[Rfam]
The family of this 138-nucleotide RNA from Paenibacillus sp. J31TS4 is "c-di-AMP riboswitch aptamer (ydaO/yuaA leader)".

RNA sequence: AAGACAAGCAUGCCGAAUUUCUGUUCUCAGGAAACGGGGGAACCAAACUCCGGGUGAAUUGAUUCUGGACGCAAGGAAUCAUAGGGUGCCUUCAACCGAACCCUCAGCUAACCUCGUAGGCAAGUGGAAGGAGUAUUU
Numbered sequence: 001a002a003g004a005c006a007a008g009c010a011u012g013c014c015g016a017a018u019u020u021c022u023g024u025u026c027u028c029a030g031g032a033a034a035c036g037g038g039g040g041a042a043c044c045a046a047a048c049u050c051c052g053g054g055u056g057a058a059u060u061g062a063u064u065c066u067g068g069a070c071g072c073a074a075g076g077a078a079u080c081a082u083a084g085g086g087u088g089c090c091u092u093c094a095a096c097c098g099a100a101c102c103c104u105c106a107g108c109u110a111a112c113c114u115c116g117u118a119g120g121c122a123a124g125u126g127g128a129a130g131g132a133g134u135a136u137u138u
Stems, first nucleotide, its partner, number of pairs: 011122004018033006034117006052103003060081007084097002087094001
The match comes from Rfam's covariance-model search (69 bits).
The organism belongs to Paenibacillus, within Bacteria.